[Rfam]
RNA sequence: AGAUGAGUGAAACACCCCGCUCACAGGGGACUGUGGGCGAUGCCGGAGCGUGGCCUCCCCAGCUACGAGACGGCCGUGCCUUCGCGCACGCACCCGGGGCCUCGCGCUCCGGAAUUCCUCACCGAUCGGA
Numbered sequence: 001a002g003a004u005g006a007g008u009g010a011a012a013c014a015c016c017c018c019g020c021u022c023a024c025a026g027g028g029g030a031c032u033g034u035g036g037g038c039g040a041u042g043c044c045g046g047a048g049c050g051u052g053g054c055c056u057c058c059c060c061a062g063c064u065a066c067g068a069g070a071c072g073g074c075c076g077u078g079c080c081u082u083c084g085c086g087c088a089c090g091c092a093c094c095c096g097g098g099g100c101c102u103c104g105c106g107c108u109c110c111g112g113a114a115u116u117c118c119u120c121a122c123c124g125a126u127c128g129g130a
Stems, first nucleotide, its partner, number of pairs: 004121004009117002018039009042074004049067006076089004094112007122129002
Dot-bracket structure: ...((((.((.......(((((((((....)))))))))..((((...((((((.......))))))...)))).((((......))))....(((((((.....)))))))...))))))((....)).
RNA: Streptomyces RNA 5676